This 273-nucleotide part of an RNA from Methylobacterium radiodurans belongs to the Rfam family "Bacterial large subunit ribosomal RNA". Rfam 15.1 lists 51,934 matches to the family in 10,816 species.
RNA sequence: GACAAAGAGUGUGAAAGACACUCUCGCCGAAAGUCCAAGGGUUCCUGCGUAAAGUUAAUCUGCGCAGGGUUAGCCGGCCCCUAAGGCGAGGCCGAAAGGCGUAGUCGAUGGGAACGGGGCGAACAUUCCCCGGCCAGCGGAUGGUGACGGAUCCCGUGUGUUGUUCGACCUUAUCGGAUUGGUCGGGCAGCGAAGGGGUCCCAGGAAAUAGCCUCCGCAUGAGACCGUACCCGAAACCGACACAGGUGGACUGGUAGAGUAUACCAAGGCGCU
Number, nucleotide and partner (000 for none) at each position: 001g000002a000003c000004a000005a000006a024007g023008a022009g021010u020011g019012u000013g000014a000015a000016a000017g000018a000019c011020a010021c009022u008023c007024u006025c271026g270027c269028c268029g000030a000031a000032a000033g251034u250035c249036c248037a000038a000039g231040g230041g000042u000043u000044c068045c067046u066047g065048c064049g063050u000051a000052a000053a061054g060055u000056u000057a000058a000059u000060c054061u053062g000063c049064g048065c047066a046067g045068g044069g000070u000071u000072a000073g000074c000075c227076g226077g225078c000079c000080c111081c110082u000083a000084a000085g106086g105087c104088g000089a102090g000091g100092c099093c098094g000095a000096a000097a000098g093099g092100c091101g000102u089103a000104g087105u086106c085107g000108a000109u000110g081111g080112g000113a000114a000115c132116g131117g130118g129119g128120c000121g000122a000123a000124c000125a000126u000127u000128c119129c118130c117131c116132g115133g000134c000135c223136a000137g218138c000139g000140g215141a214142u000143g212144g000145u210146g000147a000148c000149g201150g200151a199152u198153c000154c000155c000156g000157u195158g000159u000160g191161u190162u189163g188164u187165u186166c185167g184168a183169c182170c181171u000172u000173a000174u000175c000176g000177g000178a000179u000180u000181g170182g169183u168184c167185g166186g165187g164188c163189a162190g161191c160192g000193a000194a000195g157196g000197g000198g152199u151200c150201c149202c000203a000204g000205g000206a000207a000208a000209u000210a145211g000212c143213c000214u141215c140216c000217g000218c137219a000220u000221g000222a000223g135224a000225c077226c076227g075228u000229a000230c040231c039232c000233g000234a000235a000236a000237c246238c245239g000240a000241c000242a000243c000244a000245g238246g237247u000248g036249g035250a034251c033252u000253g265254g264255u263256a262257g000258a000259g000260u000261a000262u256263a255264c254265c253266a000267a000268g028269g027270c026271g025272c000273u000